[Rfam]
RNA sequence: CUCUUAUUAAGAGUUGGCGGAGAUACAAGGAUCUGUGAUGCCACGGCAACCCCCGAUUAUGAUGGAAGGUGCCCACCGGAGCAAUGCAAUAUUGAUCAAUAAGAG
Numbered sequence: 001c002u003c004u005u006a007u008u009a010a011g012a013g014u015u016g017g018c019g020g021a022g023a024u025a026c027a028a029g030g031a032u033c034u035g036u037g038a039u040g041c042c043a044c045g046g047c048a049a050c051c052c053c054c055g056a057u058u059a060u061g062a063u064g065g066a067a068g069g070u071g072c073c074c075a076c077c078g079g080a081g082c083a084a085u086g087c088a089a090u091a092u093u094g095a096u097c098a099a100u101a102a103g104a105g
Stems, first nucleotide, its partner, number of pairs: 001105008013044001015043004022033003045073004050069002053065003082094005
Notes
SAM riboswitch aptamer (S box leader): a 105-nucleotide sequence from Eubacterium ventriosum. NCBI's taxonomy places the organism under Bacteria, Bacillota, Clostridia, Eubacterium, Eubacterium ventriosum. Pairs were carried over by alignment from the consensus structure, which is taken from published work. Rfam links the family to the GO term regulation of gene expression.